[Rfam]
A member of the RNA family "terC RNA" from Caulobacter radicis, 75 nucleotides long. The family has 129 seed sequences and 1,112 matches in Rfam 15.1. By type it is a cis-regulatory element. The match comes from Rfam's covariance-model search (53 bits).
RNA sequence: UGAGCGGGCCGGGCCCCUCUGGCGCAGCGUCUUCACCUCCCCUCCGAAGGACGCGCGUGAUGUCGGACCGCAUCG
Numbered sequence: 001u002g003a004g005c006g007g008g009c010c011g012g013g014c015c016c017c018u019c020u021g022g023c024g025c026a027g028c029g030u031c032u033u034c035a036c037c038u039c040c041c042c043u044c045c046g047a048a049g050g051a052c053g054c055g056c057g058u059g060a061u062g063u064c065g066g067a068c069c070g071c072a073u074c075g
Stems, first nucleotide, its partner, number of pairs: 006069002009066004022058004027054007
Dot-bracket structure: .....((.((((.........((((.(((((((..............)))))))))))....)))).))......